Shown here is an 87-nucleotide RNA sequence from Lupinus albus, a member of the family "MIR397 microRNA precursor family". A search with the family's covariance model found it, with a score of 71 bits. The source organism's lineage runs through Eukaryota, Streptophyta, Mesangiospermae, Fabaceae and Lupinus.

RNA sequence: CUAAGAAACAUCAUUGAGUGCAGCGUUGAUGAAGUUUCGGAUAGAUGCCAAAUGAUUUUAUCAACGAUGCACUCAAUCAUGUUUUUU
Numbered sequence: 001c002u003a004a005g006a007a008a009c010a011u012c013a014u015u016g017a018g019u020g021c022a023g024c025g026u027u028g029a030u031g032a033a034g035u036u037u038c039g040g041a042u043a044g045a046u047g048c049c050a051a052a053u054g055a056u057u058u059u060a061u062c063a064a065c066g067a068u069g070c071a072c073u074c075a076a077u078c079a080u081g082u083u084u085u086u087u
Base pairs, nucleotide, nucleotide: 006084007083008082009081010080011079013077014076015075016074017073018072019071020070021069022068024066025065026064027063028062030060031059032058033057034056035055036054